Rfam assigns this 52-nucleotide sequence from Inquilinus limosus to the family "Whalefall-1 RNA". Taxonomically the source falls in Inquilinus (Bacteria, Pseudomonadati, Pseudomonadota, Rhodospirillales).
RNA sequence: UCACCUCUCCUUGGGGAGAGGUCGACAUCGCGCAGCGAUUUCGGGUGAGGGG
Numbered sequence: 001u002c003a004c005c006u007c008u009c010c011u012u013g014g015g016g017a018g019a020g021g022u023c024g025a026c027a028u029c030g031c032g033c034a035g036c037g038a039u040u041u042c043g044g045g046u047g048a049g050g051g052g
Stems, first nucleotide, its partner, number of pairs: 004021007024042002027039005